Bacterial large subunit ribosomal RNA: a 599-nucleotide part of an RNA from Finegoldia magna. Lineage of the source: Bacteria > Bacillati > Bacillota > Tissierellia > Finegoldia magna. Its Rfam clan is "LSU clan". The sequence is in the family's curated seed alignment.
RNA sequence: CUCCUCGAAAUAGCUUUAGGGCUAGCCUUGUUUUAGAUUACAGGAGGUAGAGCACUGAAUAGUCUAGGGGAAGUAAUUCUACCGAAACUUAUCAAACUCCGAAUGCCUGAAAAUCGAUGAACAGGAGUCAGACCAUGAGGGAUAAGCUUCAUAGUCAAAAGGGAAACAGCCCAGACCACCAGUUAAGGUCCCAAAAUACAGAUUAAGUGGGAAAGGAUGUAAUACUACUCAGACAACCAGGAUGUUGGCUCAGAAGCAGCCAUACAUUUAAAGAGUGCGUAAUAGCUCACUGGUCAAGUGGUAAUGCGCCGAAGAUGAACGGGGCUAAAUCUGAUACCGAAACUGUGGGAUAGAAAAGCAAUUAUGCGAGAAGUAUGAAGUAAAAGUGAUUAGGAAAUAUAUCAACUAGUAAAGUAAGAGAAAAAGACAUAAAAUAAAAUUUGUGAAAACACAAAAAGCGUAAAACUAUUAAACGAUACAAUUUCUAAAACACUUAACAACAUACAACUGGCAUAAUAGCUUUUCUAUCGGUAGAGGAGCGUUGUAUAUGAGAAGAAGCAAAAAGCGUAAGCAAUUGUGGAUUAUAUACAAGUGAGAAU
Numbered sequence: 001c002u003c004c005u006c007g008a009a010a011u012a013g014c015u016u017u018a019g020g021g022c023u024a025g026c027c028u029u030g031u032u033u034u035a036g037a038u039u040a041c042a043g044g045a046g047g048u049a050g051a052g053c054a055c056u057g058a059a060u061a062g063u064c065u066a067g068g069g070g071a072a073g074u075a076a077u078u079c080u081a082c083c084g085a086a087a088c089u090u091a092u093c094a095a096a097c098u099c100c101g102a103a104u105g106c107c108u109g110a111a112a113a114u115c116g117a118u119g120a121a122c123a124g125g126a127g128u129c130a131g132a133c134c135a136u137g138a139g140g141g142a143u144a145a146g147c148u149u150c151a152u153a154g155u156c157a158a159a160a161g162g163g164a165a166a167c168a169g170c171c172c173a174g175a176c177c178a179c180c181a182g183u184u185a186a187g188g189u190c191c192c193a194a195a196a197u198a199c200a201g202a203u204u205a206a207g208u209g210g211g212a213a214a215g216g217a218u219g220u221a222a223u224a225c226u227a228c229u230c231a232g233a234c235a236a237c238c239a240g241g242a243u244g245u246u247g248g249c250u251c252a253g254a255a256g257c258a259g260c261c262a263u264a265c266a267u268u269u270a271a272a273g274a275g276u277g278c279g280u281a282a283u284a285g286c287u288c289a290c291u292g293g294u295c296a297a298g299u300g301g302u303a304a305u306g307c308g309c310c311g312a313a314g315a316u317g318a319a320c321g322g323g324g325c326u327a328a329a330u331c332u333g334a335u336a337c338c339g340a341a342a343c344u345g346u347g348g349g350a351u352a353g354a355a356a357a358g359c360a361a362u363u364a365u366g367c368g369a370g371a372a373g374u375a376u377g378a379a380g381u382a383a384a385a386g387u388g389a390u391u392a393g394g395a396a397a398u399a400u401a402u403c404a405a406c407u408a409g410u411a412a413a414g415u416a417a418g419a420g421a422a423a424a425a426g427a428c429a430u431a432a433a434a435u436a437a438a439a440u441u442u443g444u445g446a447a448a449a450c451a452c453a454a455a456a457a458g459c460g461u462a463a464a465a466c467u468a469u470u471a472a473a474c475g476a477u478a479c480a481a482u483u484u485c486u487a488a489a490a491c492a493c494u495u496a497a498c499a500a501c502a503u504a505c506a507a508c509u510g511g512c513a514u515a516a517u518a519g520c521u522u523u524u525c526u527a528u529c530g531g532u533a534g535a536g537g538a539g540c541g542u543u544g545u546a547u548a549u550g551a552g553a554a555g556a557a558g559c560a561a562a563a564a565g566c567g568u569a570a571g572c573a574a575u576u577g578u579g580g581a582u583u584a585u586a587u588a589c590a591a592g593u594g595a596g597a598a599u
Stems, first nucleotide, its partner, number of pairs: 001539006011024005026127001027125007035118001036115003039111001041109004050100001051098002056094003061089003067083002069080004131156003135152006161172003176348004181344003187338003196335001199333005215310002219307003223303006236294005242267003247261003268272001273288001277286002349529011540594001542591010558578004565572002